[Rfam]
RNA sequence: GGGGCCGUUUUGGAUUUGACAGGGUGACGCUAAGUAUGUUAGCAUGCAGUGCGUUGUACGGAGAGCACUUAAAAGAGAACGUUCACACUUUGAUUGGCGAAAAUAACUACGCCUUAGCAGCCUAAUUUAGAAUUAGUUUGCUUUUGUCCCUCUGACUGCUGCGAUGUUAGGUUAGAAUAUGGGGCAUCGAAAUAACAACGCUGGCAAUUGUAAGGUACGAUACAGUUGCGAGAUAAAGUACCUAAGGUGAAAGGUAAGGUCGGUUUCCAGCCCGCCAGAUCCCGAAAAUUAAUUGGAAAAUAAGCAUGUAGAAGGCAUAAUUUAUCACACAACUGGACAAGGGUUCGAACCCCUUCGGCUCCACCC
Dot-bracket structure: (((((((............(((.(((....((((((((((..((((((((((..[[.[[[....)))))..........]]].]]..............................(((((.(((.........))).)))))..(((((((((((((...[[[.[[[..)))))))....))))))........]]].]]]..(((((((((.[[[[[..)))))))))........]]]]]...[[.[...[[[..[[[...((((((]]].]]]...].]]..........))))))....))))).....)))))).))))...)))..)))...(((((.......))))))))))))....
Rfam assigns this 366-nucleotide RNA from Pedobacter sp. MC2016-24 to the family "transfer-messenger RNA". The organism belongs to Pedobacter, within Bacteria. It scores 113 bits against the family's covariance model. The base pairs follow the family's consensus structure, which is taken from published work.